[Rfam]
A member of the RNA family "Bacterial large subunit ribosomal RNA" from Trichormus azollae, 588 nucleotides of a longer RNA. The source organism's lineage runs through Bacteria, Cyanobacteriota, Cyanophyceae, Trichormus and Trichormus azollae. It scores 2701 bits against the family's covariance model. Clan: LSU clan.
RNA sequence: CCUGCACCUGGACAGAAAGACCCUAUGAAGCUUUACUGUAGCCUGGAAUUGUGUUCGGGCUUCGCUUGCGCAGGAUAGGUGGGAAGUGAUGAAGUAUUCCUUGUGGGGAAUAUGGAGCUAACAGUGAGAUACCACUCUGGCGAAGCUAGAAUUCUAACUCAUCUCCGUCAGCCGGAGAGAGGACAGUUUCAGGUGGGCAGUUUGACUGGGGCGGUCGCCUCCUAAAAGGUAACGGAGGCGCGCAAAGGUUCCCUCAGCACGCUUGGAAACCGUGCGGCGAGUGUAAAGGCAUAAAGGGAGCUUGACUGCAAGACCUACAAGUCGAGCAGGUACGAAAGUAGGCCUUAGUGAUCCGACGGCGCAGAGUGGAAUGGCCGUCGCUCAACGGAUAAAAGUUACUCUAGGGAUAACAGGCUGAUCUCCCCCAAGAGUCCACAUCGACGGGGAGGUUUGGCACCUCGAUGUCGGCUCAUCGCAACCUGGGGCGGAAGUACGUCCCAAGGGUUGGGCUGUUCGCCCAUUAAAGCGGUACGUGAGCUGGGUUCAGAACGUCGUGAGACAGUUCGGUCCAUAUCCGGUGCAGGCGUA
Numbered sequence: 001c002c003u004g005c006a007c008c009u010g011g012a013c014a015g016a017a018a019g020a021c022c023c024u025a026u027g028a029a030g031c032u033u034u035a036c037u038g039u040a041g042c043c044u045g046g047a048a049u050u051g052u053g054u055u056c057g058g059g060c061u062u063c064g065c066u067u068g069c070g071c072a073g074g075a076u077a078g079g080u081g082g083g084a085a086g087u088g089a090u091g092a093a094g095u096a097u098u099c100c101u102u103g104u105g106g107g108g109a110a111u112a113u114g115g116a117g118c119u120a121a122c123a124g125u126g127a128g129a130u131a132c133c134a135c136u137c138u139g140g141c142g143a144a145g146c147u148a149g150a151a152u153u154c155u156a157a158c159u160c161a162u163c164u165c166c167g168u169c170a171g172c173c174g175g176a177g178a179g180a181g182g183a184c185a186g187u188u189u190c191a192g193g194u195g196g197g198c199a200g201u202u203u204g205a206c207u208g209g210g211g212c213g214g215u216c217g218c219c220u221c222c223u224a225a226a227a228g229g230u231a232a233c234g235g236a237g238g239c240g241c242g243c244a245a246a247g248g249u250u251c252c253c254u255c256a257g258c259a260c261g262c263u264u265g266g267a268a269a270c271c272g273u274g275c276g277g278c279g280a281g282u283g284u285a286a287a288g289g290c291a292u293a294a295a296g297g298g299a300g301c302u303u304g305a306c307u308g309c310a311a312g313a314c315c316u317a318c319a320a321g322u323c324g325a326g327c328a329g330g331u332a333c334g335a336a337a338g339u340a341g342g343c344c345u346u347a348g349u350g351a352u353c354c355g356a357c358g359g360c361g362c363a364g365a366g367u368g369g370a371a372u373g374g375c376c377g378u379c380g381c382u383c384a385a386c387g388g389a390u391a392a393a394a395g396u397u398a399c400u401c402u403a404g405g406g407a408u409a410a411c412a413g414g415c416u417g418a419u420c421u422c423c424c425c426c427a428a429g430a431g432u433c434c435a436c437a438u439c440g441a442c443g444g445g446g447a448g449g450u451u452u453g454g455c456a457c458c459u460c461g462a463u464g465u466c467g468g469c470u471c472a473u474c475g476c477a478a479c480c481u482g483g484g485g486c487g488g489a490a491g492u493a494c495g496u497c498c499c500a501a502g503g504g505u506u507g508g509g510c511u512g513u514u515c516g517c518c519c520a521u522u523a524a525a526g527c528g529g530u531a532c533g534u535g536a537g538c539u540g541g542g543u544u545c546a547g548a549a550c551g552u553c554g555u556g557a558g559a560c561a562g563u564u565c566g567g568u569c570c571a572u573a574u575c576c577g578g579u580g581c582a583g584g585c586g587u588a
Stems, first nucleotide, its partner, number of pairs: 001584008010576003015570001022405004027401002029397005035201004042193007051154001053152004058147009068137001078136005085119003094113008158181003162178006204216004217239006240386001242343002248301006254280002257275005281290002306329004312323003331340003354380007362373002414455003418452001419449007429439002466541001467539004471533001472530005479504002482499006506520005547565004551560003
Dot-bracket structure: ((((((((.(((..(......((((.(((((((.((((...(((((((..(.((((.(((((((((.(.........(((((..(((......((((((((....))))))))...)))............)))))).))))))))).)))).)...(((.((((((.....))))))))).....)))))))....))))..((((.....))))((((((...........))))))(.((....((((((((.(((((.........)))))...))((......)).....))))))....((((..(((......)))..)))).(((....))).))..........(((((((.((........))))))))).....)......)))))..))))))........(((.((((((((...((.......))...)))))))..))))..........(((((((((((..((.((((((......))))))...)).(((((.....))))).....)))))..)..)))).).....(((((((....))).))))....)...)))))))))))....